[Rfam]
RNA sequence: CUCUGGUAUUAUAAUUUAGAUAGUCCUUCUUAGCCAUCUUUAGCUCCCGGUUUUUAAGGACUAUCUUUAAAUGUUCCCC
Numbered sequence: 001c002u003c004u005g006g007u008a009u010u011a012u013a014a015u016u017u018a019g020a021u022a023g024u025c026c027u028u029c030u031u032a033g034c035c036a037u038c039u040u041u042a043g044c045u046c047c048c049g050g051u052u053u054u055u056a057a058g059g060a061c062u063a064u065c066u067u068u069a070a071a072u073g074u075u076c077c078c079c
Stems, first nucleotide, its partner, number of pairs: 019065009032052004
Source information:
Rfam assigns this 79-nucleotide sequence from Pelagibacterales bacterium SAG-MED14 to the family "rhtB sRNA". Lineage of the source: Bacteria > Pseudomonadati > Pseudomonadota > Alphaproteobacteria > Candidatus Pelagibacterales. The family's RNA type in Rfam is small RNA.